[Rfam]
RNA sequence: AAAGCAGGUCAAUCUUAUCGCUUUGUACUGAAUCAUGUUCAGAAUAAAGAGGAAAGUCCGAACACCAAAGAGUAGCAUAGCGGAUAACAUCCGUCCGGCGUAAGUCGAGGACAAGUGCAACAGAAAGCAAGUACAGUUCGGCUGUAGUGAAACCAGGUAAACUCUAUGCGGUGCAAUGCCACGUAUAUUGAAGAUUGAGGGCUACUCGCUCGAUUUCAAGGGGUGGGCAGAUCGAUUCUAAAAGUAAUUUUAGAACUAGAUAAAUGAUAAGACUCUAAUUCAUUAGAGACAGGAUUCGGCUUAUAGACCUGCUUCUUUA
Numbered sequence: 001a002a003a004g005c006a007g008g009u010c011a012a013u014c015u016u017a018u019c020g021c022u023u024u025g026u027a028c029u030g031a032a033u034c035a036u037g038u039u040c041a042g043a044a045u046a047a048a049g050a051g052g053a054a055a056g057u058c059c060g061a062a063c064a065c066c067a068a069a070g071a072g073u074a075g076c077a078u079a080g081c082g083g084a085u086a087a088c089a090u091c092c093g094u095c096c097g098g099c100g101u102a103a104g105u106c107g108a109g110g111a112c113a114a115g116u117g118c119a120a121c122a123g124a125a126a127g128c129a130a131g132u133a134c135a136g137u138u139c140g141g142c143u144g145u146a147g148u149g150a151a152a153c154c155a156g157g158u159a160a161a162c163u164c165u166a167u168g169c170g171g172u173g174c175a176a177u178g179c180c181a182c183g184u185a186u187a188u189u190g191a192a193g194a195u196u197g198a199g200g201g202c203u204a205c206u207c208g209c210u211c212g213a214u215u216u217c218a219a220g221g222g223g224u225g226g227g228c229a230g231a232u233c234g235a236u237u238c239u240a241a242a243a244g245u246a247a248u249u250u251u252a253g254a255a256c257u258a259g260a261u262a263a264a265u266g267a268u269a270a271g272a273c274u275c276u277a278a279u280u281c282a283u284u285a286g287a288g289a290c291a292g293g294a295u296u297c298g299g300c301u302u303a304u305a306g307a308c309c310u311g312c313u314u315c316u317u318u319a
Base pairs, nucleotide, nucleotide: 002314003313004312005311006310007309008308009307010306011304013272014271015270016269017268018267019266021049022048023047024046025045026044028042029041030040031039054302055301056300058299059298060297061296062295063173064172065171066170070207071206072205073204075169076168077167078166079165080094081093082092083091084090095109096107097106098105099104110164111163115162116161117158118157132146133145134144135143136142137141177229178228179227180226188219189218190217191216192215199211200210201209202208236255237254238253239252240251241250242249243248
Record summary: The family of this 319-nucleotide RNA from Polaribacter pacificus is "Bacterial RNase P class A". It is annotated as a ribozyme. The match comes from Rfam's covariance-model search (204 bits). The organism belongs to Polaribacter, within Bacteria. From the family's description: Ribonuclease P (RNase P) is a ubiquitous endoribonuclease, found in archaea, bacteria and eukarya as well as chloroplasts and mitochondria.